Shown here is a 169-nucleotide RNA sequence from Bacillus smithii, a member of the family "M-box riboswitch aptamer (ykoK leader)". The pairing is the family consensus, mapped onto this sequence. Its family is annotated with response to magnesium ion and regulation of gene expression in the Gene Ontology. It scores 160 bits against the family's covariance model. The source organism's lineage runs through Bacteria, Bacillati, Bacillota, Caryophanales and Bacillus smithii. On this family, see Barrick et al., Proc Natl Acad Sci U S A 2004: "New RNA motifs suggest an expanded scope for riboswitches in bacterial genetic control". M-box riboswitch, also know as ykoK leader is described as a metaloregulatory RNA that sense divalent metals and function as a genetic control element of genes related to divalent metal transport in bacteria. It was first reported upstream of the B.subtilis ykoK gene and genes with related functions in other bacteria.
[Rfam]
RNA sequence: GAAUUUCCUCGUUAGGCGAGGCUCCUAUACAAACAAAAGCCACUGCCCAGAAACAUCGAAAGAUGCCAUUGGGUAGAACAGGUUUGGUCGGAUUAAGGCUUAACCCAAUGUGGCUGAGAGCAUGACUCUCUACGUUGUAUAGUGCUAAAGCUAAACUAGGGGGAAAAAG
Numbered sequence: 001g002a003a004u005u006u007c008c009u010c011g012u013u014a015g016g017c018g019a020g021g022c023u024c025c026u027a028u029a030c031a032a033a034c035a036a037a038a039g040c041c042a043c044u045g046c047c048c049a050g051a052a053a054c055a056u057c058g059a060a061a062g063a064u065g066c067c068a069u070u071g072g073g074u075a076g077a078a079c080a081g082g083u084u085u086g087g088u089c090g091g092a093u094u095a096a097g098g099c100u101u102a103a104c105c106c107a108a109u110g111u112g113g114c115u116g117a118g119a120g121c122a123u124g125a126c127u128c129u130c131u132a133c134g135u136u137g138u139a140u141a142g143u144g145c146u147a148a149a150g151c152u153a154a155a156c157u158a159g160g161g162g163g164a165a166a167a168a169g
Stems, first nucleotide, its partner, number of pairs: 005165006011156002013096001015152003020146003025142008039114005045074005054065004081105004087099003116130003